[Rfam]
RNA sequence: UUAAAAGCUAUGAAGGAAAAUAGUAAAAAAUAUUUUUGUAUUCAGAGAGUGAGUGGUUGGUGUGAACUCAUUGCAAUGAUUUUUGAAUCCAUUCCAGAGCUUCUAGUCGGAAAUAAUAGUAAGAUUAGACGUAUACCUACGUUACAGGAUUGAGAGGACUAUACAUAUACUGUAUGGUCAAUUAGGGUGGCAACGCGGAUUAAAGACUUUCGUCCCUUUU
Dot-bracket structure: ......((......((((.......((((((......(((........((((((...........)))))))))....)))))).......))))...))..((((((..............)))))).(((......)))...............(((((((((.....)))))))))....((((.......(((((.........)))))))))...

Overview:
T-box leader: a 220-nucleotide RNA sequence from Romboutsia ilealis. The family's RNA type in Rfam is cis-regulatory leader. Uncharged tRNA acts as the effector for transcription antitermination of genes in the T-box leader family. T-boxes are found upstream of many aminoacyl-tRNA synthetase genes and some amino acid biosynthetic genes usually in Gram-positive bacteria. Its family is annotated with tRNA binding in the Gene Ontology.